This 367-nucleotide sequence from endosymbiont of Acanthamoeba sp. UWC8 belongs to the Rfam family "Bacterial RNase P class A". Pairs were carried over by alignment from the consensus structure, which is taken from published work. NCBI's taxonomy places the organism under Bacteria, Pseudomonadati, Pseudomonadota, Holosporales, Holosporaceae. Rfam describes the family as follows. Ribonuclease P (RNase P) is a ubiquitous endoribonuclease, found in archaea, bacteria and eukarya as well as chloroplasts and mitochondria. For this family Rfam cites "Ribonuclease P: unity and diversity in a tRNA processing ribozyme" (Frank and Pace, Annu Rev Biochem, 1998).
RNA sequence: AAAGAUAGCCGGAUGGCUGCUGAAAUUUAAAAACUUUCAGAGGAAAGUCCGGGCUUUAUGGAACAAUGAUCCCGGGUAACGCCCGGAGAGGGUAACCUCAUGGAAAGUGCCGCAGAAAAUAUACCGCCGGUAAUUUUUAUCGGUAAGGGUGAAAUGGUGGGGUAAGAGCUCACCGGGCUUUUAGUAAUAAAAGUUGCAUGGUAAACCCGAUCAAAAGCAAGACCGUAUAGGUGCGAUUAUAAGUAUGUUCCACUUUUUUGCACGGGUAGGUCGCAUGAGCUGAAUGGUGACAUUCAGCCAAGAUGAAUAGCCGUCAAAAAGGAUUUUAUCCUUUUUACAGAACCCGGCUUACAGGCUAUCUUUCAAU
Number, nucleotide and partner (000 for none) at each position: 001a363002a362003a361004g360005a359006u358007a357008g356009c355010c354011g352012g315013a314014u313015g312016g311017c310018u309019g000020c040021u039022g038023a037024a036025a035026u000027u033028u032029a000030a000031a000032a028033a027034c000035u025036u024037u023038c022039a021040g020041a000042g000043g000044a000045a350046a349047g348048u000049c347050c346051g345052g344053g343054c217055u216056u215057u214058a000059u000060g000061g000062a000063a000064c000065a248066a000067u213068g212069a211070u210071c209072c086073c085074g084075g083076g082077u000078a000079a000080c000081g000082c076083c075084c074085g073086g072087a101088g099089a098090g097091g096092g000093u000094a000095a000096c091097c090098u089099c088100a000101u087102g208103g207104a000105a000106a000107g206108u205109g202110c201111c200112g000113c000114a000115g000116a000117a000118a000119a000120u000121a000122u000123a000124c148125c147126g144127c143128c142129g141130g140131u139132a138133a137134u000135u000136u000137u133138u132139a131140u130141c129142g128143g127144u126145a000146a000147g125148g124149g000150u000151g000152a000153a000154a000155u000156g174157g173158u172159g171160g170161g169162g000163u000164a000165a000166g000167a000168g000169c161170u160171c159172a158173c157174c156175g197176g195177g194178c193179u192180u191181u190182u189183a188184g000185u000186a000187a000188u183189a182190a181191a180192a179193g178194u177195u176196g000197c175198a000199u000200g111201g110202u109203a000204a000205a108206c107207c103208c102209g071210a070211u069212c068213a067214a057215a056216a055217g054218c000219a000220a000221g272222a271223c270224c269225g000226u000227a000228u000229a000230g000231g263232u262233g261234c260235g259236a258237u000238u000239a000240u000241a000242a256243g255244u000245a000246u252247g000248u065249u000250c000251c000252a246253c000254u000255u243256u242257u000258u236259u235260g234261c233262a232263c231264g000265g000266g000267u000268a000269g224270g223271u222272c221273g000274c000275a000276u000277g000278a000279g298280c297281u296282g295283a294284a293285u292286g291287g000288u000289g000290a000291c286292a285293u284294u283295c282296a281297g280298c279299c000300a000301a000302g000303a000304u000305g000306a000307a000308u000309a018310g017311c016312c015313g014314u013315c012316a000317a000318a000319a000320a000321g000322g000323a000324u000325u000326u000327u000328a000329u000330c000331c000332u000333u000334u000335u000336u000337a000338c000339a000340g000341a000342a000343c053344c052345c051346g050347g049348c047349u046350u045351a000352c011353a000354g010355g009356c008357u007358a006359u005360c004361u003362u002363u001364c000365a000366a000367u000